Notes: The record is a 129-nucleotide sequence from Eschrichtius robustus, which matches "Small nucleolar RNA SNORA25" in Rfam. The family's RNA type in Rfam is H/ACA-box small nucleolar RNA. ACA25 is a member of the H/ACA class of snoRNA that guide the sites of modification of uridines to pseudouridines.
[Rfam]
RNA sequence: AGGCCAUUUCCAAGUGGGCUUGUGGAGCUGUGAAACAAGGACCUCUUAACACUAUGACCAGAGAUUGAAGUUCUCUUGAGGAUGCCACAGUCACUUAAUAGUGCUAUGUGCUCCUAAAAAGAUGUAGCC
Number, nucleotide and partner (000 for none) at each position: 001a000002g059003g058004c000005c056006a055007u054008u000009u000010c000011c000012a000013a000014g047015u000016g045017g044018g043019c000020u041021u040022g000023u039024g000025g000026a000027g036028c000029u000030g000031u000032g000033a000034a000035a000036c027037a000038a000039g023040g021041a020042c000043c018044u017045c016046u000047u014048a000049a000050c000051a000052c000053u000054a007055u006056g005057a000058c003059c002060a000061g000062a000063g000064a000065u000066u000067g000068a000069a000070g000071u000072u122073c121074u120075c000076u118077u000078g000079a115080g114081g113082a112083u000084g000085c000086c000087a107088c000089a105090g104091u000092c103093a102094c101095u100096u000097a000098a000099u000100a095101g094102u093103g092104c090105u089106a000107u087108g000109u000110g000111c000112u082113c081114c080115u079116a000117a000118a076119a000120a074121g073122a072123u000124g000125u000126a000127g000128c000129c000
Pairs were carried over by alignment from the consensus structure, which was predicted with RNAfold. Rfam 15.1 lists 1,129 matches to the family in 449 species. Rfam links the family to the GO terms RNA processing and nucleolus. Taxonomically the source falls in Eschrichtius (Eukaryota, Euteleostomi, Sarcopterygii, Amniota). The match comes from Rfam's covariance-model search (94 bits).